[Rfam]
RNA: c-di-AMP riboswitch aptamer (ydaO/yuaA leader)
Organism: Caldibacillus thermoamylovorans
RNA sequence: UUGUUUAAGUCGCUGAAACAAUAUUGUACGGGGGAACCAACGAUGGAUUUUAUAUAUAAAUCCAAGGGGUGAAUCCUUUAGGUAGGGAUAUUCAAUGUCCCGAAUCCGCCAGCUAACCUCGUAAGCGUUAUUGAAAGGGAAG
Numbered sequence: 001u002u003g004u005u006u007a008a009g010u011c012g013c014u015g016a017a018a019c020a021a022u023a024u025u026g027u028a029c030g031g032g033g034g035a036a037c038c039a040a041c042g043a044u045g046g047a048u049u050u051u052a053u054a055u056a057u058a059a060a061u062c063c064a065a066g067g068g069g070u071g072a073a074u075c076c077u078u079u080a081g082g083u084a085g086g087g088a089u090a091u092u093c094a095a096u097g098u099c100c101c102g103a104a105u106c107c108g109c110c111a112g113c114u115a116a117c118c119u120c121g122u123a124a125g126c127g128u129u130a131u132u133g134a135a136a137g138g139g140a141a142g
Base pairs, nucleotide, nucleotide: 011127012126013125014124018027019026020025028122029121030120031119032118033117038066067107068106069105075082076081085101086100087099088098